Overview: This 312-nucleotide RNA from Halorubrum vacuolatum belongs to the Rfam family "Archaeal signal recognition particle RNA". Rfam classes the family as a non-coding RNA gene. The base pairs follow the family's consensus structure, which is taken from published work. A reference for the family is Wild et al. (2002), "Towards the structure of the mammalian signal recognition particle", Curr Opin Struct Biol. The match comes from Rfam's covariance-model search (182 bits). Rfam links the family to the GO terms signal recognition particle, plasma membrane targeting and SRP-dependent cotranslational protein targeting to membrane, signal sequence recognition. Clan: SRP clan.
RNA sequence: GGAUGGACUAGGUCGGGCGGUUAGGCCCCGCUCGUAACCCGUGAGGGAGUCUUUAGCGGGGACCGAACACCGGGCACGUCCGGUCAGACCGGGACGGGCCUCGGGAGCCAACGUGGAAGCCUCGUCCGCCGGGGACAGCGGUCCACGGCGCCCGCCCGCAGGGGCGGUCCGUCGUGGUUCGCCGGCGACACCGGGUCAGGCGCGGAAGCGAGCAGCCCACCGUCGGACGCCAGUCGCUCGUCGGGUCGCGGGGUGGAGAAGGCAACCGGGAUACCCCGUUCCGGAACGCCGGGCAACCCCGGUCGUCCACCA
Numbered sequence: 001g002g003a004u005g006g007a008c009u010a011g012g013u014c015g016g017g018c019g020g021u022u023a024g025g026c027c028c029c030g031c032u033c034g035u036a037a038c039c040c041g042u043g044a045g046g047g048a049g050u051c052u053u054u055a056g057c058g059g060g061g062a063c064c065g066a067a068c069a070c071c072g073g074g075c076a077c078g079u080c081c082g083g084u085c086a087g088a089c090c091g092g093g094a095c096g097g098g099c100c101u102c103g104g105g106a107g108c109c110a111a112c113g114u115g116g117a118a119g120c121c122u123c124g125u126c127c128g129c130c131g132g133g134g135a136c137a138g139c140g141g142u143c144c145a146c147g148g149c150g151c152c153c154g155c156c157c158g159c160a161g162g163g164g165c166g167g168u169c170c171g172u173c174g175u176g177g178u179u180c181g182c183c184g185g186c187g188a189c190a191c192c193g194g195g196u197c198a199g200g201c202g203c204g205g206a207a208g209c210g211a212g213c214a215g216c217c218c219a220c221c222g223u224c225g226g227a228c229g230c231c232a233g234u235c236g237c238u239c240g241u242c243g244g245g246u247c248g249c250g251g252g253g254u255g256g257a258g259a260a261g262g263c264a265a266c267c268g269g270g271a272u273a274c275c276c277c278g279u280u281c282c283g284g285a286a287c288g289c290c291g292g293g294c295a296a297c298c299c300c301g302g303u304c305g306u307c308c309a310c311c312a
Base pairs, nucleotide, nucleotide: 002311004309005308006307007306008305011064012063013062014061015033016032017031018030019029020028038060039059040058041057042056070302071301072300073299074298078294079293080292081291082289089284090283091282092281093280094279095278096277097276098275100270101269102268103267104266107263108262109261112258114256119254120253121252122251123250124249125248126244127243128242130240131239132238133237134235135234136233138231139229140228141179143177144176145175146174147173148172149171150170152167153166154165155164156163157162182226183225184224185223186222187221193218194217195216196215201210202209203208